A member of the RNA family "ZMP/ZTP riboswitch aptamer (pfl RNA motif)" from Lentihominibacter hominis, 85 nucleotides long. A search with the family's covariance model found it, with a score of 59 bits. NCBI's taxonomy places the organism under Bacteria, Bacillati, Clostridia, Peptostreptococcales, Lentihominibacter. The base pairs follow the family's consensus structure, which is taken from published work. Gene Ontology terms of the family: one-carbon metabolic process and regulation of purine nucleotide biosynthetic process.
RNA sequence: AAUUUGUUAUACGACUGACGGGAUCAAGUGGAAUCAACCACGUGAAGUAUAAUGUAACAGUGAGCCGACCGUCUGGGCAGAGAGU
Numbered sequence: 001a002a003u004u005u006g007u008u009a010u011a012c013g014a015c016u017g018a019c020g021g022g023a024u025c026a027a028g029u030g031g032a033a034u035c036a037a038c039c040a041c042g043u044g045a046a047g048u049a050u051a052a053u054g055u056a057a058c059a060g061u062g063a064g065c066c067g068a069c070c071g072u073c074u075g076g077g078c079a080g081a082g083a084g085u
Stems, first nucleotide, its partner, number of pairs: 003056001005054008015044001017073005028041004064078003